Description
This 98-nucleotide sequence from Spiroplasma mirum belongs to the Rfam family "Purine riboswitch aptamer". From the family's description: Riboswitches are metabolite binding domains within certain messenger RNAs that serve as precision sensors for their corresponding targets. Taxonomically the source falls in Spiroplasma mirum (Bacteria, Bacillati, Entomoplasmatales, Spiroplasmataceae).
[Rfam]
RNA sequence: CCUAAUUUAAUAUCGGAUACCUAUAUAAGCUAGUAAUAUGGUCUAGUGUUUCUACAAUUAACCGUAAAUUAAUUACUAUGGUAAAAUUAUGUAAUUUU
Numbered sequence: 001c002c003u004a005a006u007u008u009a010a011u012a013u014c015g016g017a018u019a020c021c022u023a024u025a026u027a028a029g030c031u032a033g034u035a036a037u038a039u040g041g042u043c044u045a046g047u048g049u050u051u052c053u054a055c056a057a058u059u060a061a062c063c064g065u066a067a068a069u070u071a072a073u074u075a076c077u078a079u080g081g082u083a084a085a086a087u088u089a090u091g092u093a094a095u096u097u098u
Stems, first nucleotide, its partner, number of pairs: 018084001021081005029047005056074006
Dot-bracket structure: .................(..(((((...(((((.........)))))........((((((.......))))))..)))))..)..............